[Rfam]
RNA sequence: AAAACUCCUACAGGAGCGCCCUGAGAUCACAUGCGUGCGCUAUGGUCACCACUUGCCUGGGCUUGUGUUCAUGUGUUCUCAGGUCGCCCCUGCUGGGCUUUC
Dot-bracket structure: ......((..((((.(((....((((.(((((......................................))))).))))....))).))))..))......
RNA: MIR398 microRNA precursor family